Record summary:
This 92-nucleotide sequence from Clostridium sp. HMP27 belongs to the Rfam family "c-di-GMP-I riboswitch aptamer". The organism belongs to Clostridium, within Bacteria.

RNA sequence: UAUUGAAAAUAGCAAACCUAUUGAAAAGUAGGGACGCAAAGCUAUGGGUCUAAUGGAUGAAUUAUCAAUCCGAUGAUUGCCAGGUUGCCAAA
Number, nucleotide and partner (000 for none) at each position: 001u000002a000003u000004u000005g000006a000007a000008a000009a000010u000011a000012g037013c036014a000015a000016a000017c032018c031019u030020a029021u028022u027023g000024a000025a000026a000027a022028g021029u020030a019031g018032g017033g000034a000035c000036g013037c012038a000039a000040a086041g085042c084043u083044a000045u082046g081047g080048g077049u076050c075051u000052a000053a000054u000055g071056g070057a069058u068059g000060a000061a000062u000063u000064a000065u000066c000067a000068a058069u057070c056071c055072g000073a000074u000075g050076a049077u048078u000079g000080c047081c046082a045083g043084g042085u041086u040087g000088c000089c000090a000091a000092a000